[Rfam]
Rfam assigns this 225-nucleotide sequence from Clostridiales bacterium PH28_bin88 to the family "Group II catalytic intron D1-D4-6".
RNA sequence: AAAGAGCCCCACGUGAAAGGAGUAGCUGCACCAUCACGGCCCCGAGUCAUGCGCGGGCAGCCGCGAGGCGGCACAUGAAGCGUUGACAGGGGAAAACGCGGGCCAGCCAUUGAGCUCCGAAAUCACCCUUUCCGGGGGCCGACCACGUGAACCGAUUGGGAAGGCAACACGGUAUAACGGCGAUACUGCAGCGAGCCUAUACCGGCCCCGCGGAGUCAAAGACCC
Numbered sequence: 001a002a003a004g005a006g007c008c009c010c011a012c013g014u015g016a017a018a019g020g021a022g023u024a025g026c027u028g029c030a031c032c033a034u035c036a037c038g039g040c041c042c043c044g045a046g047u048c049a050u051g052c053g054c055g056g057g058c059a060g061c062c063g064c065g066a067g068g069c070g071g072c073a074c075a076u077g078a079a080g081c082g083u084u085g086a087c088a089g090g091g092g093a094a095a096a097c098g099c100g101g102g103c104c105a106g107c108c109a110u111u112g113a114g115c116u117c118c119g120a121a122a123u124c125a126c127c128c129u130u131u132c133c134g135g136g137g138g139c140c141g142a143c144c145a146c147g148u149g150a151a152c153c154g155a156u157u158g159g160g161a162a163g164g165c166a167a168c169a170c171g172g173u174a175u176a177a178c179g180g181c182g183a184u185a186c187u188g189c190a191g192c193g194a195g196c197c198u199a200u201a202c203c204g205g206c207c208c209c210g211c212g213g214a215g216u217c218a219a220a221g222a223c224c225c
Stems, first nucleotide, its partner, number of pairs: 012038005019032002022029001023194001025192001027191001040092004046087004050082002052077002055074001057072002060069003111219001112217001114216006133210005138165003143159003170204007179197003
From the family's description: Group II introns are found in rRNA, tRNA and mRNA of organelles in fungi, plants and protists, and also in mRNA in bacteria.